Shown here is a 138-nucleotide RNA from Chauna torquata, a member of the family "Small nucleolar RNA SNORA5". Rfam's curators write: ACA5 is a member of the H/ACA class of snoRNA that guide the sites of modification of uridines to pseudouridines. Its Rfam clan is "SNORA5 clan". Rfam classes the family as an H/ACA-box small nucleolar RNA.
RNA sequence: UGCAGCCCCGUCAAAUUCAGUCCCUGCCUCCCCUGUGGCGGGGACUGGCCAGCUGGCUGCCACAGCAACUUCUGUAGUCCAUGGGCCUCACGUCCCCUCCCGUGGGACCCUGGGGAUAAAAUCGUGCCACAGACACUG
Number, nucleotide and partner (000 for none) at each position: 001u000002g060003c059004a058005g057006c000007c000008c000009c000010g000011u000012c000013a000014a000015a000016u000017u000018c047019a046020g045021u044022c043023c042024c041025u040026g039027c038028c037029u000030c000031c000032c000033c000034u000035g000036u000037g028038g027039c026040g025041g024042g023043g022044a021045c020046u019047g018048g000049c000050c000051a000052g000053c000054u000055g000056g000057c005058u004059g003060c002061c000062a000063c000064a000065g000066c000067a000068a000069c000070u000071u000072c000073u000074g130075u129076a000077g127078u126079c124080c000081a000082u000083g000084g000085g000086c115087c114088u113089c112090a111091c000092g000093u000094c000095c000096c000097c000098u000099c000100c000101c000102g000103u000104g000105g000106g000107a000108c000109c000110c000111u090112g089113g088114g087115g086116a000117u000118a000119a000120a000121a000122u000123c000124g079125u000126g078127c077128c000129a075130c074131a000132g000133a000134c000135a000136c000137u000138g000